[Rfam]
RNA sequence: UGUCUCCUCCACCCUCUGAAAAGGUGGAUUUAAGCCCCGAGUCUUACGACUCGGGGCUUUUUUU
Dot-bracket structure: .......((((((.........)))))).....((((((((........)))))))).......
Numbered sequence: 001u002g003u004c005u006c007c008u009c010c011a012c013c014c015u016c017u018g019a020a021a022a023g024g025u026g027g028a029u030u031u032a033a034g035c036c037c038c039g040a041g042u043c044u045u046a047c048g049a050c051u052c053g054g055g056g057c058u059u060u061u062u063u064u
Stems, first nucleotide, its partner, number of pairs: 008028006034057008